[Rfam]
RNA sequence: UGCCCUAGCAGCGGGAACAGUACUGCAGUGAGCUAUAGGACUUCUGGAGUAUUGCUUCUGCUGCCAGGGUA
Numbered sequence: 001u002g003c004c005c006u007a008g009c010a011g012c013g014g015g016a017a018c019a020g021u022a023c024u025g026c027a028g029u030g031a032g033c034u035a036u037a038g039g040a041c042u043u044c045u046g047g048a049g050u051a052u053u054g055c056u057u058c059u060g061c062u063g064c065c066a067g068g069g070u071a
Base pairs, nucleotide, nucleotide: 002070003069004068005067008064009063010062011061012060013059014058015057016056018054019053020052021051023049024048026046027045028044031043032042034040

Rfam assigns this 71-nucleotide RNA from Oryctolagus cuniculus to the family "mir-503 microRNA precursor family". The source organism's lineage runs through Eukaryota, Metazoa, Eumetazoa, Dipnotetrapodomorpha and Oryctolagus. The match comes from Rfam's covariance-model search (82 bits).